The family of this 73-nucleotide RNA sequence from Neogobius melanostomus is "mir-10 microRNA precursor family". The literature on the family includes a 2001 paper in Cell by Ambros, "microRNAs: tiny regulators with great potential". Its family is annotated with RISC complex and miRNA-mediated post-transcriptional gene silencing in the Gene Ontology. The source organism's lineage runs through Eukaryota, Eumetazoa, Gnathostomata, Gobioidei and Neogobius.
RNA sequence: AGCCUCCAACCCGUAGAUCCGAACUUGUGUUUUUUCUGCUCUUCACAAGCUUGUAUCUACAGGUCUGCGUCUG
Numbered sequence: 001a002g003c004c005u006c007c008a009a010c011c012c013g014u015a016g017a018u019c020c021g022a023a024c025u026u027g028u029g030u031u032u033u034u035u036c037u038g039c040u041c042u043u044c045a046c047a048a049g050c051u052u053g054u055a056u057c058u059a060c061a062g063g064u065c066u067g068c069g070u071c072u073g
Base pairs, nucleotide, nucleotide: 002071004069006067010063011062015058016057017056018055020053021052022051024049025048026047027046028045029044